[Rfam]
RNA sequence: AAGAAUUACUAGGGGAACCCGUGUUGCUGGUUGAGAGUUAUCCGUAAGAUAAAAACCCUUUGAACCUGAUCUGGUUAAUGCCAGCGUAGGAAACGGACAUUCUUUACAU
Numbered sequence: 001a002a003g004a005a006u007u008a009c010u011a012g013g014g015g016a017a018c019c020c021g022u023g024u025u026g027c028u029g030g031u032u033g034a035g036a037g038u039u040a041u042c043c044g045u046a047a048g049a050u051a052a053a054a055a056c057c058c059u060u061u062g063a064a065c066c067u068g069a070u071c072u073g074g075u076u077a078a079u080g081c082c083a084g085c086g087u088a089g090g091a092a093a094c095g096g097a098c099a100u101u102c103u104u105u106a107c108a109u
Base pairs, nucleotide, nucleotide: 006097007096010093011059012058013057014056017031018030019029021027038052039051040050041049042048065090066089067088068087071084072083073082074081